[Rfam]
RNA sequence: GUGGCUUCUUUAAUUUUAUCUUUUUAAAAUCCGGAAAUUUUAAUAAAAUAUUUUCGUGAUGGAAAGAAGCCUAAACAGAAUUGUUCUCCUCGCUAUCCGGUGCUUCAAAUUUUAUGUGGCAUUUGGACGUCGGGGAACUACAUCU
Numbered sequence: 001g002u003g004g005c006u007u008c009u010u011u012a013a014u015u016u017u018a019u020c021u022u023u024u025u026a027a028a029a030u031c032c033g034g035a036a037a038u039u040u041u042a043a044u045a046a047a048a049u050a051u052u053u054u055c056g057u058g059a060u061g062g063a064a065a066g067a068a069g070c071c072u073a074a075a076c077a078g079a080a081u082u083g084u085u086c087u088c089c090u091c092g093c094u095a096u097c098c099g100g101u102g103c104u105u106c107a108a109a110u111u112u113u114a115u116g117u118g119g120c121a122u123u124u125g126g127a128c129g130u131c132g133g134g135g136a137a138c139u140a141c142a143u144c145u
Stems, first nucleotide, its partner, number of pairs: 002073001003071003008066004016059002019056001026054002037052001039050001083138007091129002096127005106116002
RNA: Small nucleolar RNA snoR136